[Rfam]
RNA sequence: UUCUGUUACUGAAUAAGUCUCAGGGCGGAAUGAG
Dot-bracket structure: (((((..(((.....)))..))))).........
RNA: L31-Firmicutes ribosomal protein leader